[Rfam]
RNA sequence: CGAAGGGACGCAGCAGCAAUUCAUGUUUUGGAGUGUUGUAAAAGAUUCAAAACAUGAAGCGCUGCUACACCCCUUCGUGGGGGC
Numbered sequence: 001c002g003a004a005g006g007g008a009c010g011c012a013g014c015a016g017c018a019a020u021u022c023a024u025g026u027u028u029u030g031g032a033g034u035g036u037u038g039u040a041a042a043a044g045a046u047u048c049a050a051a052a053c054a055u056g057a058a059g060c061g062c063u064g065c066u067a068c069a070c071c072c073c074u075u076c077g078u079g080g081g082g083g084c
Base pairs, nucleotide, nucleotide: 001077002076003075004074005073006072007071010068013065014064015063016062017061020058021057022056023055024054025053026052027051028050029049030048031047032046034044
The record is an 84-nucleotide RNA sequence from Nannospalax galili, which matches "mir-322 microRNA precursor family" in Rfam. For this family Rfam cites "Altered expression profiles of microRNAs during TPA-induced differentiation of HL-60 cells" (Kasashima et al., Biochem Biophys Res Commun, 2004). It scores 95 bits against the family's covariance model. Its family is annotated with miRNA-mediated post-transcriptional gene silencing and RISC complex in the Gene Ontology. Taxonomically the source falls in Nannospalax (Eukaryota, Craniata, Vertebrata, Dipnotetrapodomorpha).